[Rfam]
RNA sequence: GGCGAUAAACGGAUUUCGUAAUAAACCAUUCGGACCCGGGGGCGGUACCCGGCGCCUCCACCAAAAGCCCAAGACCUGAUGUCAGGAAGCCUGGGUUUUUCAUGGGGGCGAAAUAGGAUCGACGAGGGUGUAAAGGAUCUUCUUUUGCUCGGCAUGGUUCCGCCGUUAUCGGGCCGUUUGAUAGUUGCAAAUGACAACUACGCUGAGGCACGUCUAGCUGCGUAA
Numbered sequence: 001g002g003c004g005a006u007a008a009a010c011g012g013a014u015u016u017c018g019u020a021a022u023a024a025a026c027c028a029u030u031c032g033g034a035c036c037c038g039g040g041g042g043c044g045g046u047a048c049c050c051g052g053c054g055c056c057u058c059c060a061c062c063a064a065a066a067g068c069c070c071a072a073g074a075c076c077u078g079a080u081g082u083c084a085g086g087a088a089g090c091c092u093g094g095g096u097u098u099u100u101c102a103u104g105g106g107g108g109c110g111a112a113a114u115a116g117g118a119u120c121g122a123c124g125a126g127g128g129u130g131u132a133a134a135g136g137a138u139c140u141u142c143u144u145u146u147g148c149u150c151g152g153c154a155u156g157g158u159u160c161c162g163c164c165g166u167u168a169u170c171g172g173g174c175c176g177u178u179u180g181a182u183a184g185u186u187g188c189a190a191a192u193g194a195c196a197a198c199u200a201c202g203c204u205g206a207g208g209c210a211c212g213u214c215u216a217g218c219u220g221c222g223u224a225a
Stems, first nucleotide, its partner, number of pairs: 001149005016137002026128002030125003036052005053110007150165004
The record is a 225-nucleotide RNA sequence from a Parvibaculaceae bacterium, which matches "permuted transfer-messenger RNA" in Rfam. Lineage of the source: Bacteria > Pseudomonadati > Pseudomonadota > Hyphomicrobiales > Parvibaculaceae. From the family's description: Bacterial tmRNA, also known as 10Sa RNA or SsrA, is named for its dual tRNA and mRNA-like properties. Its role is to liberate the mRNA from a stalled ribosome. To accomplish this part of the tmRNA is used as a reading frame that ends in a translation stop signal.